[Rfam]
The record is a 104-nucleotide RNA sequence from Phoenix dactylifera, which matches "MIR394 microRNA precursor family" in Rfam. Taxonomically the source falls in Phoenix (Eukaryota, Streptophyta, Petrosaviidae, Coryphoideae). Rfam 15.1 lists 724 matches to the family in 216 species.
RNA sequence: CUUACAGAGGUCAUUGGCAUGCUGUCCACCUCCAAAUCCUCUAUCUAGACGGCCAAAGGGGAAGAGAAAUGGAGGUGGGCAUCCUGCCAACUGAGCUCUGUUGG
Numbered sequence: 001c002u003u004a005c006a007g008a009g010g011u012c013a014u015u016g017g018c019a020u021g022c023u024g025u026c027c028a029c030c031u032c033c034a035a036a037u038c039c040u041c042u043a044u045c046u047a048g049a050c051g052g053c054c055a056a057a058g059g060g061g062a063a064g065a066g067a068a069a070u071g072g073a074g075g076u077g078g079g080c081a082u083c084c085u086g087c088c089a090a091c092u093g094a095g096c097u098c099u100g101u102u103g104g
Base pairs, nucleotide, nucleotide: 011094014090015089016088017087018086019085023081024080025079026078027077028076029075030074031073032072033071